[Rfam]
Rfam assigns this 137-nucleotide RNA from Flavisolibacter ginsenosidimutans to the family "SAM riboswitch aptamer (S box leader)". The SAM riboswitch is found upstream of a number of genes which code for proteins involved in methionine or cysteine biosynthesis in Gram-positive bacteria. NCBI's taxonomy places the organism under Bacteria, Pseudomonadati, Chitinophagia, Chitinophagales, Flavisolibacter. Pairs were carried over by alignment from the consensus structure, which is taken from published work.

RNA sequence: CGCUUAUCAAGAAAGGCUGAGGGAUAUGGCCCUUUGACGCCUUGACAACCUGUCUUCGGCAAGCUCAGACUGACAAGUCUUUGCUGCUGACGAUAAGGUGCCAACUCCAGCCCGCGGAAUUGCGGGACAGAUAAGUC
Numbered sequence: 001c002g003c004u005u006a007u008c009a010a011g012a013a014a015g016g017c018u019g020a021g022g023g024a025u026a027u028g029g030c031c032c033u034u035u036g037a038c039g040c041c042u043u044g045a046c047a048a049c050c051u052g053u054c055u056u057c058g059g060c061a062a063g064c065u066c067a068g069a070c071u072g073a074c075a076a077g078u079c080u081u082u083g084c085u086g087c088u089g090a091c092g093a094u095a096a097g098g099u100g101c102c103a104a105c106u107c108c109a110g111c112c113c114g115c116g117g118a119a120u121u122g123c124g125g126g127a128c129a130g131a132u133a134a135g136u137c
Stems, first nucleotide, its partner, number of pairs: 002136007013043005021032003027109003044102001046100002049098002051095004106129001111126006